RNA sequence: CCCUUUAUCAAAGUGGAUUGUGAUGUGUAUGUUUAUCCAUGUAAUCAUAUCACAGCCACUUUGAUUAGUGGAC
Numbered sequence: 001c002c003c004u005u006u007a008u009c010a011a012a013g014u015g016g017a018u019u020g021u022g023a024u025g026u027g028u029a030u031g032u033u034u035a036u037c038c039a040u041g042u043a044a045u046c047a048u049a050u051c052a053c054a055g056c057c058a059c060u061u062u063g064a065u066u067a068g069u070g071g072a073c
Stems, first nucleotide, its partner, number of pairs: 005067001007065010018055006026049003

The family of this 73-nucleotide sequence from Blomia tropicalis is "mir-2 microRNA precursor family". For this family Rfam cites "An extensive class of small RNAs in Caenorhabditis elegans" (Lee and Ambros, Science, 2001). The match comes from Rfam's covariance-model search (51 bits). Pairs were carried over by alignment from the consensus structure, which was predicted with PFOLD. Lineage of the source: Eukaryota > Protostomia > Panarthropoda > Chelicerata > Blomia. Gene Ontology terms of the family: miRNA-mediated post-transcriptional gene silencing and RISC complex.